[Rfam]
RNA sequence: AUGAAGGCAAGGGGAGAGACUACAUUUGUAGCGCCGAAGGAGCAAGCAAUAUUUAUUGUGAAUCUCUCAGGCAAAAGAACCCUUGUUGGACG
Numbered sequence: 001a002u003g004a005a006g007g008c009a010a011g012g013g014g015a016g017a018g019a020c021u022a023c024a025u026u027u028g029u030a031g032c033g034c035c036g037a038a039g040g041a042g043c044a045a046g047c048a049a050u051a052u053u054u055a056u057u058g059u060g061a062a063u064c065u066c067u068c069a070g071g072c073a074a075a076a077g078a079a080c081c082c083u084u085g086u087u088g089g090a091c092g
Base pairs, nucleotide, nucleotide: 006087007086008085009084010083011082012081013080020031021030022029023028033072034071035070036068037067040066041065042064046059047058
Glycine riboswitch aptamer: a 92-nucleotide sequence from Cytobacillus solani. The pairing is the family consensus, mapped onto this sequence. This family represents the bacterial glycine riboswitch.